Source information
The family of this 148-nucleotide RNA sequence from Chenopodium quinoa is "Small nucleolar RNA snoR136".

RNA sequence: UAGGGUUCACUUUGGUUAGGCCUUAAAAUGGUGCUAAUUAUAUUAAUGGGCAUUGUUUUGAAAAUGUGAAUCCUAAAUUAAUUUGUUCCCCUCGCUAUCCGGUGUAGAUGUUUUCCGUCCUACAUUUGGACGUUGGGUAACUACAUUU
Numbered sequence: 001u002a003g004g005g006u007u008c009a010c011u012u013u014g015g016u017u018a019g020g021c022c023u024u025a026a027a028a029u030g031g032u033g034c035u036a037a038u039u040a041u042a043u044u045a046a047u048g049g050g051c052a053u054u055g056u057u058u059u060g061a062a063a064a065u066g067u068g069a070a071u072c073c074u075a076a077a078u079u080a081a082u083u084u085g086u087u088c089c090c091c092u093c094g095c096u097a098u099c100c101g102g103u104g105u106a107g108a109u110g111u112u113u114u115c116c117g118u119c120c121u122a123c124a125u126u127u128g129g130a131c132g133u134u135g136g137g138u139a140a141c142u143a144c145a146u147u148u
Base pairs, nucleotide, nucleotide: 001076003073004072005071008068009067010066012064013063016061017060018058019057025056027054028053029052030051032049035046085141086140087139089137090136091135093132094131098130099129100128101127102126107119108118109117

Rfam classes the family as an H/ACA-box small nucleolar RNA. A search with the family's covariance model found it, with a score of 67 bits.